This 56-nucleotide RNA from Nyssa sinensis belongs to the Rfam family "Plastid-ccsA-ndhD-1 3UTR RNA". Clan: Plastid-ccsA_ndhD 3UTR RNA clan. Plastid-ccsA-ndhD-1 is a non-coding RNA (ncRNA) recognised in plastids. It was found in the three prime untranslated region (3UTR) of ccsA and ndhD genes, its 3UTR location suggests a role in transcript maturation. For this family Rfam cites "Retrograde signaling in plants: A critical review focusing on the GUN pathway and beyond" (Richter et al., Plant Commun, 2023). NCBI's taxonomy places the organism under Eukaryota, Embryophyta, eudicotyledons, Pentapetalae, Nyssa.
[Rfam]
RNA sequence: AAGCCAGUGAGAACCAUUUGAAUCAAGUGGUGUAUGAUUCAAAUGGUUCUUUCAAA
Numbered sequence: 001a002a003g004c005c006a007g008u009g010a011g012a013a014c015c016a017u018u019u020g021a022a023u024c025a026a027g028u029g030g031u032g033u034a035u036g037a038u039u040c041a042a043a044u045g046g047u048u049c050u051u052u053c054a055a056a
Stems, first nucleotide, its partner, number of pairs: 007053001009051017
Dot-bracket structure: ......(.(((((((((((((((((.........))))))))))))))))).)...